tRNA: a 102-nucleotide RNA sequence from Sphaerulina musiva. It scores 46 bits against the family's covariance model. From the family's description: Transfer RNA (tRNA) molecules are approximately 80 nucleotides in length.

RNA sequence: GGGCUUGUAGCACAGUGGUAGCGCGCACGCUUUGCAAGGGACAGGGCGCAGACCCAUCCAAAUUGCUGCGUGAGGUCUUGGGUUCGAUCCCCAACUGGUCCA
Numbered sequence: 001g002g003g004c005u006u007g008u009a010g011c012a013c014a015g016u017g018g019u020a021g022c023g024c025g026c027a028c029g030c031u032u033u034g035c036a037a038g039g040g041a042c043a044g045g046g047c048g049c050a051g052a053c054c055c056a057u058c059c060a061a062a063u064u065g066c067u068g069c070g071u072g073a074g075g076u077c078u079u080g081g082g083u084u085c086g087a088u089c090c091c092c093a094a095c096u097g098g099u100c101c102a
Stems, first nucleotide, its partner, number of pairs: 001101005007095001010024002013021001026072005078094005
The base pairs follow the family's consensus structure, which is taken from published work.